[Rfam]
RNA: MIR4371 microRNA precursor family
RNA sequence: UCGUUAAGUGAUGAUGUGAUAAACAAAGUGUCAUGUUUUCAUGCCUUGUCAUAGACACCUCAUUGACAUGUCAUCACCUUCAAUGAAGUGGCACUGAUGUGUCAGUGAUUGGGCAUGGUGAAAUGACACUUUGUCUGUUACGUUGUCACUUAACGAAA
Dot-bracket structure: (((((((((((((((((((((.((((((((((((.((.((((((((.(((((.(((((............((((........))))............))))).))))).)))))))).)).)))))))))))).)))))))))))))))))))))..
Numbered sequence: 001u002c003g004u005u006a007a008g009u010g011a012u013g014a015u016g017u018g019a020u021a022a023a024c025a026a027a028g029u030g031u032c033a034u035g036u037u038u039u040c041a042u043g044c045c046u047u048g049u050c051a052u053a054g055a056c057a058c059c060u061c062a063u064u065g066a067c068a069u070g071u072c073a074u075c076a077c078c079u080u081c082a083a084u085g086a087a088g089u090g091g092c093a094c095u096g097a098u099g100u101g102u103c104a105g106u107g108a109u110u111g112g113g114c115a116u117g118g119u120g121a122a123a124u125g126a127c128a129c130u131u132u133g134u135c136u137g138u139u140a141c142g143u144u145g146u147c148a149c150u151u152a153a154c155g156a157a158a
Stems, first nucleotide, its partner, number of pairs: 001156021023134012036121002039118008048109005054103005071086004